[Rfam]
RNA sequence: CCCCUUUUCGCCGCCGCGCGCAUCGCCUAUAUCGGCCGGUGCCGGGUUCGCCCGGCUAUGGCGAUAAAAUGUAGCGUGUCAUAGACGCAGCGGACCCGGGGGCAGUACCCGGCGGCUCCACCAGAAAUGGUGGUGAUACUGGACACCGUUUCUGACGGGGCCGAACCAGGAUCGACGUGUGUUGAAAAGCGCUGCUUUCGCCCGGAAUGGGACCACCGCAACGGCCCAUCUCACAAGUGCCAACGAUAACGAGGCGCUCGCGAUUGCAGCCUAACCCAAGACCUCACGGUCUAGGUUAGAUUGACGAAAGCGCGGUUGGACGCACCGGGCAACAGAAGCGUUACG
Number, nucleotide and partner (000 for none) at each position: 001c000002c000003c000004c000005u000006u000007u000008u000009c000010g000011c000012c000013g000014c000015c000016g000017c000018g000019c000020g000021c000022a000023u000024c000025g000026c000027c000028u000029a000030u000031a000032u000033c000034g000035g000036c000037c000038g000039g000040u000041g056042c055043c054044g053045g052046g000047u000048u000049c000050g000051c000052c045053c044054g043055g042056c041057u000058a000059u000060g202061g201062c200063g199064a198065u000066a000067a000068a000069a000070u000071g195072u194073a193074g192075c191076g190077u189078g000079u000080c000081a000082u000083a000084g000085a000086c181087g180088c179089a000090g178091c177092g176093g000094a000095c000096c112097c111098g110099g109100g108101g000102g000103c000104a000105g000106u000107a000108c100109c099110c098111g097112g096113c163114g162115g161116c160117u159118c158119c157120a000121c000122c000123a000124g000125a000126a000127a000128u000129g000130g000131u000132g000133g000134u000135g000136a000137u000138a000139c000140u000141g000142g000143a000144c000145a000146c000147c000148g000149u000150u000151u000152c000153u000154g000155a000156c000157g119158g118159g117160g116161c115162c114163g113164a000165a000166c000167c000168a000169g000170g000171a000172u000173c000174g000175a000176c092177g091178u090179g088180u087181g086182u000183u000184g000185a000186a000187a000188a000189g077190c076191g075192c074193u073194g072195c071196u000197u000198u064199c063200g062201c061202c060203c218204g217205g216206a000207a000208u228209g227210g226211g000212a000213c224214c223215a000216c205217c204218g203219c000220a000221a000222c000223g214224g213225c000226c210227c209228a208229u000230c000231u000232c000233a000234c000235a000236a000237g000238u000239g000240c000241c000242a000243a000244c000245g000246a000247u000248a000249a000250c000251g000252a000253g000254g000255c000256g000257c000258u000259c000260g000261c000262g000263a000264u000265u000266g000267c000268a000269g000270c000271c000272u000273a000274a000275c000276c000277c000278a000279a000280g000281a000282c000283c000284u000285c000286a000287c000288g000289g000290u000291c000292u000293a000294g000295g000296u000297u000298a000299g000300a000301u000302u000303g000304a000305c000306g000307a000308a000309a000310g000311c000312g000313c327314g326315g325316u324317u000318g344319g000320a342321c000322g000323c000324a316325c315326c314327g313328g000329g000330c000331a000332a000333c000334a000335g000336a000337a000338g000339c000340g000341u000342u320343a000344c318345g000
RNA: Alphaproteobacteria transfer-messenger RNA